Record summary: Glycine riboswitch aptamer: a 98-nucleotide RNA from Brevundimonas sp. SH203. From the family's description: This family represents the bacterial glycine riboswitch. Its family is annotated with glycine biosynthetic process in the Gene Ontology.
RNA sequence: AUCGCUCUCGCGGGAGAGUUCGGGGACGGGCGACCGGCUUCGACGCCGAAGGCGCAACCGCCCCGGAAACGCUCAGGCAAACGGACCGCGACAGCAUA
Numbered sequence: 001a002u003c004g005c006u007c008u009c010g011c012g013g014g015a016g017a018g019u020u021c022g023g024g025g026a027c028g029g030g031c032g033a034c035c036g037g038c039u040u041c042g043a044c045g046c047c048g049a050a051g052g053c054g055c056a057a058c059c060g061c062c063c064c065g066g067a068a069a070c071g072c073u074c075a076g077g078c079a080a081a082c083g084g085a086c087c088g089c090g091a092c093a094g095c096a097u098a
Base pairs, nucleotide, nucleotide: 006093008091009090010089011088012087013086020043021042022041023040024039025038045078046077047076048074049073052072053071054070058066059065